[Rfam]
RNA: Ruegeria cis2 sRNA
Organism: Roseivivax isoporae
RNA sequence: AGUGGAAUUUCGCGGAAAGUAGUUCACGAACGUAUAGCCGCGCGCCUGGUCGAUGGCGUGGAACAGCGGAUUCCAGUCGAACAGGUUCAGCAUCGCGGGCGGCAGCGCGUUCGCGACGAACAUCUUGCCCGAGGCGAUCAUGUUGGCGCGCUG
Numbered sequence: 001a002g003u004g005g006a007a008u009u010u011c012g013c014g015g016a017a018a019g020u021a022g023u024u025c026a027c028g029a030a031c032g033u034a035u036a037g038c039c040g041c042g043c044g045c046c047u048g049g050u051c052g053a054u055g056g057c058g059u060g061g062a063a064c065a066g067c068g069g070a071u072u073c074c075a076g077u078c079g080a081a082c083a084g085g086u087u088c089a090g091c092a093u094c095g096c097g098g099g100c101g102g103c104a105g106c107g108c109g110u111u112c113g114c115g116a117c118g119a120a121c122a123u124c125u126u127g128c129c130c131g132a133g134g135c136g137a138u139c140a141u142g143u144u145g146g147c148g149c150g151c152u153g
Base pairs, nucleotide, nucleotide: 002035003034004033008030009029014024015023037057038056039055040054041052042051064153065152066151067150068149071081072080073079087146088145089144090143091142092141093140100131101130102129103127104126105125107123110119111118